[Rfam]
RNA sequence: AUUGGCUUAGAUCAAGUGUAGUAUCUGUUCUUUUCAGUUUAAUCUCUGAAAGUCUUCUACGGAAGACACAUUGAUUAUACUUAUUUUUGAAGACCGAAUGGGGACCUCUGGGCUUGCCUAAGUCUCUGUUCACAGUGUCAUCGGUAUCACACUGCCUCCGAUUGACGCGAAAAACA
Numbered sequence: 001a002u003u004g005g006c007u008u009a010g011a012u013c014a015a016g017u018g019u020a021g022u023a024u025c026u027g028u029u030c031u032u033u034u035c036a037g038u039u040u041a042a043u044c045u046c047u048g049a050a051a052g053u054c055u056u057c058u059a060c061g062g063a064a065g066a067c068a069c070a071u072u073g074a075u076u077a078u079a080c081u082u083a084u085u086u087u088u089g090a091a092g093a094c095c096g097a098a099u100g101g102g103g104a105c106c107u108c109u110g111g112g113c114u115u116g117c118c119u120a121a122g123u124c125u126c127u128g129u130u131c132a133c134a135g136u137g138u139c140a141u142c143g144g145u146a147u148c149a150c151a152c153u154g155c156c157u158c159c160g161a162u163u164g165a166c167g168c169g170a171a172a173a174a175c176a
Stems, first nucleotide, its partner, number of pairs: 032051006052067006096131008109120004135168005140162005

About this RNA:
A member of the RNA family "U2 spliceosomal RNA" from Erysiphe pulchra, 176 nucleotides long. By type it is a spliceosomal small nuclear RNA. Rfam describes the family as follows. U2 is a small nuclear RNA (snRNA) component of the spliceosome (involved in pre-mRNA splicing). Complementary binding between U2 snRNA (in an area lying towards the 5' end but 3' to hairpin I) and the branchpoint sequence (BPS) of the intron results the bulging out of an unpaired adenosine, on the BPS, which initiates a nucleophilic attack at the intronic 5' splice site, thus starting the first of two transesterification reactions that mediate splicing. Rfam links the family to the GO terms pre-mRNA branch point binding, U2 snRNP and mRNA branch site recognition. It scores 128 bits against the family's covariance model.